[Rfam]
Plastid-psbA-1 3UTR RNA: a 140-nucleotide sequence from Rotala rotundifolia. Lineage of the source: Eukaryota > Viridiplantae > Gunneridae > Lythraceae > Rotala. The base pairs follow the family's consensus structure, which was predicted with LocARNA. Rfam classes the family as a cis-regulatory element.
RNA sequence: UGUCGAAGCUCCAUCUACAAAUGGAUAAGAUAAGACUUUGAUCUUAGUCUAAGUGUAUACGAGUUUUUGAUUUGAAAUGAACGUAAAGGAGCAAUAAUCAACACUCUUGAUAGAACAAGAAUUUGGUUAUUGCUCCUUUA
Numbered sequence: 001u002g003u004c005g006a007a008g009c010u011c012c013a014u015c016u017a018c019a020a021a022u023g024g025a026u027a028a029g030a031u032a033a034g035a036c037u038u039u040g041a042u043c044u045u046a047g048u049c050u051a052a053g054u055g056u057a058u059a060c061g062a063g064u065u066u067u068u069g070a071u072u073u074g075a076a077a078u079g080a081a082c083g084u085a086a087a088g089g090a091g092c093a094a095u096a097a098u099c100a101a102c103a104c105u106c107u108u109g110a111u112a113g114a115a116c117a118a119g120a121a122u123u124u125g126g127u128u129a130u131u132g133c134u135c136c137u138u139u140a
Base pairs, nucleotide, nucleotide: 010025011024012023013022014021085139086138087137088136089135090134091133092132093131094130095129096128097127099125100124101123105120106119107118108117